RNA: L31-Gammaproteobacteria ribosomal protein leader
RNA sequence: CGUGUGGUGUCCGGCACAAGGGGUGACCGGAUGGCGACACGGCCCAAUGAGGU
Numbered sequence: 001c002g003u004g005u006g007g008u009g010u011c012c013g014g015c016a017c018a019a020g021g022g023g024u025g026a027c028c029g030g031a032u033g034g035c036g037a038c039a040c041g042g043c044c045c046a047a048u049g050a051g052g053u
Stems, first nucleotide, its partner, number of pairs: 001041005007035002011030004015025003